[Rfam]
RNA sequence: AAUGAAACUAUCACCGUUUUUCUUCGCCUUCUUUUUUAUUUUCCCCUAACAGGGAGGCGAUGCGUCGUGUGAGAAAGAAACCGAAGACGAACAUCAAAGCCUCCCAAACGGGAGGCUUUUUUUAU
Numbered sequence: 001a002a003u004g005a006a007a008c009u010a011u012c013a014c015c016g017u018u019u020u021u022c023u024u025c026g027c028c029u030u031c032u033u034u035u036u037u038a039u040u041u042u043c044c045c046c047u048a049a050c051a052g053g054g055a056g057g058c059g060a061u062g063c064g065u066c067g068u069g070u071g072a073g074a075a076a077g078a079a080a081c082c083g084a085a086g087a088c089g090a091a092c093a094u095c096a097a098a099g100c101c102u103c104c105c106a107a108a109c110g111g112g113a114g115g116c117u118u119u120u121u122u123u124a125u
Stems, first nucleotide, its partner, number of pairs: 016092004021087006029079006036072004042055004056066004096119010